[Rfam]
The record is a 434-nucleotide RNA sequence from Alkaliphilus serpentinus, which matches "Bacterial RNase P class A" in Rfam. The match comes from Rfam's covariance-model search (292 bits). It is annotated as a ribozyme. Ribonuclease P (RNase P) is a ubiquitous endoribonuclease, found in archaea, bacteria and eukarya as well as chloroplasts and mitochondria.
RNA sequence: UGAGUAAAUCAGAUGGUCGCGGGGGCAUUUAUUGCCAACGAGGAAAGUCCGAGCUCCAUAGGGCAGGGUGCUGGGUAAUACCCAGUGGAGGUGACUCCAAGGAAAGUGCAACAGAGAGAUACCGCCACUAGAGGUUAGAGGUCAGAGAUCAGAAGCCAGAUUUAAGGGAAAAGCUUUAAAGAAAUCGUUCAUUUCAGGCUACUGCUUUCCGACUUCUAACUUCUAGUAGGUAAGGGUGGAAAGGUGAGGUAAGAGCUCACCAGCAGCUAGGUGACUAGCUGGCUAUGUAAACCCCACCUGGAGCAAGACCAAGUAGGGACAAAAAAGCGGCUGCCCGUCGUGUCCCGUGGUAGGUUGCUUGAGCCGUCUGGCAACAGCCGGCCUAGACAGAUGACCGUCAAAUACAGAACUCGGCUUAUAGAUUUGCUCGCUAU
Numbered sequence: 001u002g003a004g005u006a007a008a009u010c011a012g013a014u015g016g017u018c019g020c021g022g023g024g025g026c027a028u029u030u031a032u033u034g035c036c037a038a039c040g041a042g043g044a045a046a047g048u049c050c051g052a053g054c055u056c057c058a059u060a061g062g063g064c065a066g067g068g069u070g071c072u073g074g075g076u077a078a079u080a081c082c083c084a085g086u087g088g089a090g091g092u093g094a095c096u097c098c099a100a101g102g103a104a105a106g107u108g109c110a111a112c113a114g115a116g117a118g119a120u121a122c123c124g125c126c127a128c129u130a131g132a133g134g135u136u137a138g139a140g141g142u143c144a145g146a147g148a149u150c151a152g153a154a155g156c157c158a159g160a161u162u163u164a165a166g167g168g169a170a171a172a173g174c175u176u177u178a179a180a181g182a183a184a185u186c187g188u189u190c191a192u193u194u195c196a197g198g199c200u201a202c203u204g205c206u207u208u209c210c211g212a213c214u215u216c217u218a219a220c221u222u223c224u225a226g227u228a229g230g231u232a233a234g235g236g237u238g239g240a241a242a243g244g245u246g247a248g249g250u251a252a253g254a255g256c257u258c259a260c261c262a263g264c265a266g267c268u269a270g271g272u273g274a275c276u277a278g279c280u281g282g283c284u285a286u287g288u289a290a291a292c293c294c295c296a297c298c299u300g301g302a303g304c305a306a307g308a309c310c311a312a313g314u315a316g317g318g319a320c321a322a323a324a325a326a327g328c329g330g331c332u333g334c335c336c337g338u339c340g341u342g343u344c345c346c347g348u349g350g351u352a353g354g355u356u357g358c359u360u361g362a363g364c365c366g367u368c369u370g371g372c373a374a375c376a377g378c379c380g381g382c383c384u385a386g387a388c389a390g391a392u393g394a395c396c397g398u399c400a401a402a403u404a405c406a407g408a409a410c411u412c413g414g415c416u417u418a419u420a421g422a423u424u425u426g427c428u429c430g431c432u433a434u
Stems, first nucleotide, its partner, number of pairs: 001430010011419001012399007020040002024036004045417003049414005054303004061336004066299005071085005086100001087098004101294002106292002108288003122235002124231003127227017243261006263283001264281007307356004317345005328340004363382004368377003